[Rfam]
RNA sequence: AUGCAAAUCCUAGCGCAAGUUCUCGUGAGCGGACGUUUGCCUCAUGAGAAGACGAGGAGAAGGUUGUCGAAUAGUCAGCGGAUGCCUUCCGGCCGGUCCGGUCGAUAGAGAUCUGUUAAAGCUCAGGCGUGAGUCUGGGGGAAGAGCGGAUGGAGGACACAA
Numbered sequence: 001a002u003g004c005a006a007a008u009c010c011u012a013g014c015g016c017a018a019g020u021u022c023u024c025g026u027g028a029g030c031g032g033a034c035g036u037u038u039g040c041c042u043c044a045u046g047a048g049a050a051g052a053c054g055a056g057g058a059g060a061a062g063g064u065u066g067u068c069g070a071a072u073a074g075u076c077a078g079c080g081g082a083u084g085c086c087u088u089c090c091g092g093c094c095g096g097u098c099c100g101g102u103c104g105a106u107a108g109a110g111a112u113c114u115g116u117u118a119a120a121g122c123u124c125a126g127g128c129g130u131g132a133g134u135c136u137g138g139g140g141g142a143a144g145a146g147c148g149g150a151u152g153g154a155g156g157a158c159a160c161a162a
Stems, first nucleotide, its partner, number of pairs: 020050008029041001059089005067078001069076002090104006111151005122139007